[Rfam]
RNA: Eukaryotic large subunit ribosomal RNA, nucleotides 1975 to 2445
Organism: Rhizopus delemar
RNA sequence: UAGAACAAUGUAGAUAAGGGAAGUCGGCAAAAUAGAUCCGUAACUUCGGAAUAAGGAUUGGCUCUAAGGGUUGGGUAGAAAUGGACCCUUGGUAUUGACCUUGAGGAAGAGAGAAUGGGGGCAACUCUGUUCUUUCAUCUUCUUGGUCUACAACCAAGGGAACCCAGUCUACGCUUAACAACCAACUUAGAACUGGUACGGACAAGGGGAAUCUGACUGUCUAAUUAAAACAUAGCAUUGCGAUGGCCAGAAAGUGGUGUUGACGCAAUGUGAUUUCUGCCCAGUGCUCUGAAUGUCAAAGUGAAGAAAUUCAACCAAGCGCGGGUAAACGGCGGGAGUAACUAUGACUCUCUUAAGGUAGCCAAAUGCCUCGUCAUCUAAUUAGUGACGCGCAUGAAUGGAUUAACGAGAUUCCCACUGUCCCUAUCUACUAUCUAGCGAAACCACAGCCAAGGGAACGGGCUUGGCAGA
Numbered sequence: 001u002a003g004a005a006c007a008a009u010g011u012a013g014a015u016a017a018g019g020g021a022a023g024u025c026g027g028c029a030a031a032a033u034a035g036a037u038c039c040g041u042a043a044c045u046u047c048g049g050a051a052u053a054a055g056g057a058u059u060g061g062c063u064c065u066a067a068g069g070g071u072u073g074g075g076u077a078g079a080a081a082u083g084g085a086c087c088c089u090u091g092g093u094a095u096u097g098a099c100c101u102u103g104a105g106g107a108a109g110a111g112a113g114a115a116u117g118g119g120g121g122c123a124a125c126u127c128u129g130u131u132c133u134u135u136c137a138u139c140u141u142c143u144u145g146g147u148c149u150a151c152a153a154c155c156a157a158g159g160g161a162a163c164c165c166a167g168u169c170u171a172c173g174c175u176u177a178a179c180a181a182c183c184a185a186c187u188u189a190g191a192a193c194u195g196g197u198a199c200g201g202a203c204a205a206g207g208g209g210a211a212u213c214u215g216a217c218u219g220u221c222u223a224a225u226u227a228a229a230a231c232a233u234a235g236c237a238u239u240g241c242g243a244u245g246g247c248c249a250g251a252a253a254g255u256g257g258u259g260u261u262g263a264c265g266c267a268a269u270g271u272g273a274u275u276u277c278u279g280c281c282c283a284g285u286g287c288u289c290u291g292a293a294u295g296u297c298a299a300a301g302u303g304a305a306g307a308a309a310u311u312c313a314a315c316c317a318a319g320c321g322c323g324g325g326u327a328a329a330c331g332g333c334g335g336g337a338g339u340a341a342c343u344a345u346g347a348c349u350c351u352c353u354u355a356a357g358g359u360a361g362c363c364a365a366a367u368g369c370c371u372c373g374u375c376a377u378c379u380a381a382u383u384a385g386u387g388a389c390g391c392g393c394a395u396g397a398a399u400g401g402a403u404u405a406a407c408g409a410g411a412u413u414c415c416c417a418c419u420g421u422c423c424c425u426a427u428c429u430a431c432u433a434u435c436u437a438g439c440g441a442a443a444c445c446a447c448a449g450c451c452a453a454g455g456g457a458a459c460g461g462g463c464u465u466g467g468c469a470g471a
Base pairs, nucleotide, nucleotide: 001437002436003435004434010431011430012429013428014427015426016425018423019422020421035059036058037057038056039055044049060194061193063191064190065189066188067187068186069183070182071181072180073179075172076171077170078169079168082166083165084164086160087159088158089157090156091155092154093152095150097148098147099146100145103142104141105140106139107138109136110135111134112133113132114131115130116129117128118127119126120125195199207416208415209414210413211412212411213410214408215407218232219231220230235271236270237269238268239267240266241265242264246258247257248256249255275402276401277400279333280332281331284330285329286326287325288324289323291322294321295320296319302313303312304311305310334352335351336350337349338348339347353357373389374388375387376386377385450467451466452465453464454463